[Rfam]
RNA sequence: UAUCUUAUCUUAGCGCCAGAACCUAAACGGUUGACGAGGAUGAUAGUUAUCGAAAAUUCGGCGGAUACUAUCACGGUGGGAAUCGUUAAAUAUAUGACAAAACAUAAAAUCAAUAUUAUGCACAAAACAUAUAUUCCAAAUUUAG
Numbered sequence: 001u002a003u004c005u006u007a008u009c010u011u012a013g014c015g016c017c018a019g020a021a022c023c024u025a026a027a028c029g030g031u032u033g034a035c036g037a038g039g040a041u042g043a044u045a046g047u048u049a050u051c052g053a054a055a056a057u058u059c060g061g062c063g064g065a066u067a068c069u070a071u072c073a074c075g076g077u078g079g080g081a082a083u084c085g086u087u088a089a090a091u092a093u094a095u096g097a098c099a100a101a102a103c104a105u106a107a108a109a110u111c112a113a114u115a116u117u118a119u120g121c122a123c124a125a126a127a128c129a130u131a132u133a134u135u136c137c138a139a140a141u142u143u144a145g
Stems, first nucleotide, its partner, number of pairs: 020032004041073005050061004074085004089135007103120005109114001
RNA: glmS glucosamine-6-phosphate activated ribozyme aptamer
Organism: Firmicutes bacterium CAG:822